[Rfam]
RNA sequence: CGGUGCUCGCUGGUUGUAACAGCAACUCCAUGUGGAAUUGGUGCUUGUUCCAGUGGAGGUGCUGUUACCUGCAGGGAGCCA
Numbered sequence: 001c002g003g004u005g006c007u008c009g010c011u012g013g014u015u016g017u018a019a020c021a022g023c024a025a026c027u028c029c030a031u032g033u034g035g036a037a038u039u040g041g042u043g044c045u046u047g048u049u050c051c052a053g054u055g056g057a058g059g060u061g062c063u064g065u066u067a068c069c070u071g072c073a074g075g076g077a078g079c080c081a
Base pairs, nucleotide, nucleotide: 010074011073012072016068017067018066019065020064021063022062023061026058027057028056029055030054031053033052034051035050